[Rfam]
RNA sequence: AAUGUGGGUGAUGAAAACACGUCCUUAGGUUGGUCUUUUUUGGCCGUUUUGGUCAAAACCUUUGACCUUCCAAUGUUAGGAUUCGUCAUAGUUACACUGACACAUG
Number, nucleotide and partner (000 for none) at each position: 001a000002a105003u104004g103005u102006g101007g000008g000009u000010g000011a000012u000013g000014a000015a000016a000017a000018c000019a000020c000021g000022u000023c000024c000025u000026u000027a000028g000029g000030u000031u000032g000033g000034u000035c000036u000037u000038u000039u000040u000041u000042g000043g000044c000045c000046g000047u000048u000049u000050u000051g000052g000053u000054c000055a000056a000057a000058a000059c000060c000061u000062u000063u000064g000065a000066c000067c000068u000069u000070c000071c000072a000073a000074u000075g000076u000077u000078a000079g000080g000081a000082u000083u000084c000085g000086u000087c000088a000089u000090a000091g000092u000093u000094a000095c000096a000097c000098u000099g000100a000101c006102a005103c004104a003105u002106g000
Overview
The record is a 106-nucleotide RNA from Sinocyclocheilus rhinocerous, which matches "Small nucleolar RNA SNORD46" in Rfam. Pairs were carried over by alignment from the consensus structure. By type it is a C/D-box small nucleolar RNA. U40 is a C/D box small nucleolar RNA, also known as snoZ153 in plants. The human sequence has also been annotated in the sequence databases as U46. U40 is encoded in intron 2 of the ribosomal protein S8 gene in human, and is hypothesised to guide methylation of 2'-O-ribose residues on 28S ribosomal RNA. This family represents vertebrate U40.